[Rfam]
RNA sequence: GGACGGUUGCGGGGAGCUGGCCCUAGUACGAGAGGACCGGGCUGGACGGACCGCUGGUGUGCCAGUUGUCGGCCAACCGGCAGCGCUGGGUAGCCAUGUCCGGACGGGAUAACCGCUGACAGCAUCUAAGCGGGAAGCCCACCCCAAGAUGAGCCGUCCCACCCCACACGGGGGUAAGGCCCCGGGGAGAUGACCCGGUAGCGAGGCGGCCGGUGGACAGCGGGUAACCGACUGGAGCCAAGCCGUCCUCAUGGCCGAGG
Numbered sequence: 001g002g003a004c005g006g007u008u009g010c011g012g013g014g015a016g017c018u019g020g021c022c023c024u025a026g027u028a029c030g031a032g033a034g035g036a037c038c039g040g041g042c043u044g045g046a047c048g049g050a051c052c053g054c055u056g057g058u059g060u061g062c063c064a065g066u067u068g069u070c071g072g073c074c075a076a077c078c079g080g081c082a083g084c085g086c087u088g089g090g091u092a093g094c095c096a097u098g099u100c101c102g103g104a105c106g107g108g109a110u111a112a113c114c115g116c117u118g119a120c121a122g123c124a125u126c127u128a129a130g131c132g133g134g135a136a137g138c139c140c141a142c143c144c145c146a147a148g149a150u151g152a153g154c155c156g157u158c159c160c161a162c163c164c165c166a167c168a169c170g171g172g173g174g175u176a177a178g179g180c181c182c183c184g185g186g187g188a189g190a191u192g193a194c195c196c197g198g199u200a201g202c203g204a205g206g207c208g209g210c211c212g213g214u215g216g217a218c219a220g221c222g223g224g225u226a227a228c229c230g231a232c233u234g235g236a237g238c239c240a241a242g243c244c245g246u247c248c249u250c251a252u253g254g255c256c257g258a259g260g
Stems, first nucleotide, its partner, number of pairs: 001159008011145004017045007047102005055096003062089005067082006106140003113133005162173003175258001178256004182198005203250003206246005212239002219233002221230003